Background:
A member of the RNA family "U12 minor spliceosomal RNA" from Clonorchis sinensis, 144 nucleotides long.
RNA sequence: AUGCCUUAAACUAAUGAGUAAGGAAAAUAGCAGAUCGGCUUGAAACCCGAUCCCUAGCCUUGUACUAGGACCUAUUUUUGUGGGGUUAAGGCUGUCCCCGCGUGGCCUCUACUUCAGGGCUGCCGGGCGCUAGCGGCCUGCCCU
Numbered sequence: 001a002u003g004c005c006u007u008a009a010a011c012u013a014a015u016g017a018g019u020a021a022g023g024a025a026a027a028u029a030g031c032a033g034a035u036c037g038g039c040u041u042g043a044a045a046c047c048c049g050a051u052c053c054c055u056a057g058c059c060u061u062g063u064a065c066u067a068g069g070a071c072c073u074a075u076u077u078u079u080g081u082g083g084g085g086u087u088a089a090g091g092c093u094g095u096c097c098c099c100g101c102g103u104g105g106c107c108u109c110u111a112c113u114u115c116a117g118g119g120c121u122g123c124c125g126g127g128c129g130c131u132a133g134c135g136g137c138c139u140g141c142c143c144u
Stems, first nucleotide, its partner, number of pairs: 004023005033052006053069005082144005089139007098127002102123002104120001106118003
Annotation: Gene Ontology terms of the family: U12 snRNP, pre-mRNA branch point binding and mRNA branch site recognition. The family's RNA type in Rfam is spliceosomal small nuclear RNA. Clan: U2 clan.